[Rfam]
A member of the RNA family "MIR5565 microRNA precursor family" from Miscanthus lutarioriparius, 121 nucleotides long. Gene Ontology terms of the family: miRNA-mediated post-transcriptional gene silencing and RISC complex. The base pairs follow the family's consensus structure, which was predicted with RNAalifold.
RNA sequence: GUUAUCGGAUUCACCUCAAUCCACAUGUGUUGGGGGAUGUGUUGGGGUGGAUUGGAGUGGAAAUUUAGUUAAGUUCCACUUCAAUCCACCCCAACCUAUGUGGAUUGAUGCGAAUCCGACU
Numbered sequence: 001g002u003u004a005u006c007g008g009a010u011u012c013a014c015c016u017c018a019a020u021c022c023a024c025a026u027g028u029g030u031u032g033g034g035g036g037a038u039g040u041g042u043u044g045g046g047g048u049g050g051a052u053u054g055g056a057g058u059g060g061a062a063a064u065u066u067a068g069u070u071a072a073g074u075u076c077c078a079c080u081u082c083a084a085u086c087c088a089c090c091c092c093a094a095c096c097u098a099u100g101u102g103g104a105u106u107g108a109u110g111c112g113a114a115u116c117c118g119a120c121u
Stems, first nucleotide, its partner, number of pairs: 005119008014110001016108012029095004047089009057079003
Source information:
A search with the family's covariance model found it, with a score of 83 bits.